Description: Shown here is a 54-nucleotide RNA sequence from [Limnothrix rosea] IAM M-220, a member of the family "Nitrogen stress-induced RNA 1". By type it is a small RNA. Taxonomically the source falls in Picosynechococcus (Bacteria, Bacillati, Chroococcales, Geminocystaceae). On this family, see Ionescu et al., J Mol Biol 2010: "Heterocyst-specific transcription of NsiR1, a non-coding RNA encoded in a tandem array of direct repeats in cyanobacteria".
[Rfam]
RNA sequence: UGGUAGAUGCACCCUGGUUUUGGCCUCAGAGACUUGUUUCUGAGGCUUUUUCAU
Numbered sequence: 001u002g003g004u005a006g007a008u009g010c011a012c013c014c015u016g017g018u019u020u021u022g023g024c025c026u027c028a029g030a031g032a033c034u035u036g037u038u039u040c041u042g043a044g045g046c047u048u049u050u051u052c053a054u
Base pairs, nucleotide, nucleotide: 002013003012004011023046024045025044026043027042028041029040030039031038032037